[Rfam]
Nucleotides: 080
Base pairs, nucleotide, nucleotide: 001080002079003078004077005076006075
Number, partner (000 for none) and nucleotide at each position: 001080c002079u003078g004077u005076g006075a007000g008000g009000g010000g011000a012000a013000u014000g015000a016000u017000g018000u019000a020000c021000u022000a023000c024000u025000a026000u027000g028000a029000a030000g031000c032000u033000c034000u035000c036000a037000a038000g039000a040000u041000g042000c043000u044000g045000a046000c047000a048000u049000u050000u051000c052000u053000u054000g055000a056000u057000u058000c059000u060000g061000c062000a063000u064000c065000u066000g067000a068000a069000c070000a071000u072000g073000a074000c075006u076005u077004a078003c079002g080001g